RNA sequence: AGCUUUGCACAGGGGUAGUAUCAGAGCCAAUGAGGUUUAUCCAAGGCAUAAUGCAUAAUUAUUGCUAAUUGAAAACUCUUCCCAAUAUUCUACCAUGAUGACUUGCCAAUAUAGUUGGUGUUGGCAAUUUUGGGCAGUGUCUACAGAGA
Dot-bracket structure: ...................((.(..(((.....((.....))..)))........).)).................................(((((.(((((.........))))).))).)).............(.((....)).)